The record is a 102-nucleotide RNA from Callithrix jacchus, which matches "Y RNA" in Rfam. The family's consensus secondary structure is taken from published work. Taxonomically the source falls in Callithrix (Eukaryota, Tetrapoda, Euarchontoglires, Callitrichinae). It is annotated as a non-coding RNA gene. Rfam's curators write: Y RNAs are components of the Ro ribonucleoprotein particle (Ro RNP), in association with Ro60 and La proteins.
[Rfam]
RNA sequence: GGCCAGUCUGAGUGUAGGGGUGUCUAGAACUAAUGGAGCACAACUCACUAUAGGUUUCUUUGCUCUUCCUCCACUCCCACUGCUUCACUCGACUAGCCUUCA
Number, nucleotide and partner (000 for none) at each position: 001g098002g097003c096004c000005a094006g093007u092008c091009u000010g090011a089012g000013u000014g086015u000016a081017g080018g000019g078020g077021u000022g076023u000024c000025u000026a000027g000028a064029a000030c062031u000032a060033a059034u000035g000036g000037a000038g000039c000040a000041c000042a000043a000044c000045u000046c000047a000048c000049u000050a000051u000052a000053g000054g000055u000056u000057u000058c000059u033060u032061u000062g030063c000064u028065c000066u000067u000068c000069c000070u000071c000072c000073a000074c000075u000076c022077c020078c019079a000080c017081u016082g000083c000084u000085u000086c014087a000088c000089u011090c010091g008092a007093c006094u005095a000096g003097c002098c001099u000100u000101c000102a000